[Rfam]
RNA sequence: AGUUGCAUAUUACGGGGCAAAUACCUCCAUUGGCAGGCAGCAAUUUUUCAGGCAAGUAUCGAGUCUUAAAAUGUGCCUUCUGCCAAAGGAGAUUUGCCCAGCAAUUCUUCU
Numbered sequence: 001a002g003u004u005g006c007a008u009a010u011u012a013c014g015g016g017g018c019a020a021a022u023a024c025c026u027c028c029a030u031u032g033g034c035a036g037g038c039a040g041c042a043a044u045u046u047u048u049c050a051g052g053c054a055a056g057u058a059u060c061g062a063g064u065c066u067u068a069a070a071a072u073g074u075g076c077c078u079u080c081u082g083c084c085a086a087a088g089g090a091g092a093u094u095u096g097c098c099c100a101g102c103a104a105u106u107c108u109u110c111u
Stems, first nucleotide, its partner, number of pairs: 005107001007105001010104002013101001015099007025091004031085007